The family of this 111-nucleotide RNA from Saimiri boliviensis is "Y RNA". The organism belongs to Saimiri boliviensis, within Eukaryota. Y RNAs are components of the Ro ribonucleoprotein particle (Ro RNP), in association with Ro60 and La proteins. The family's consensus secondary structure is taken from published work.
RNA sequence: GGCUGGUCCGAAGGUAGCGAGUUAUCUCAAUUGAUUGUUCACAGUCAGUUACAGAUCAAACUCUUGUCCUACUCUUCCCCCCUUCUCACUGCUGCACUUGACUAGUCUUAA
Numbered sequence: 001g002g003c004u005g006g007u008c009c010g011a012a013g014g015u016a017g018c019g020a021g022u023u024a025u026c027u028c029a030a031u032u033g034a035u036u037g038u039u040c041a042c043a044g045u046c047a048g049u050u051a052c053a054g055a056u057c058a059a060a061c062u063c064u065u066g067u068c069c070u071a072c073u074c075u076u077c078c079c080c081c082c083u084u085c086u087c088a089c090u091g092c093u094g095c096a097c098u099u100g101a102c103u104a105g106u107c108u109u110a111a
Stems, first nucleotide, its partner, number of pairs: 001107008010099002014095002016090002019087003043073003047070002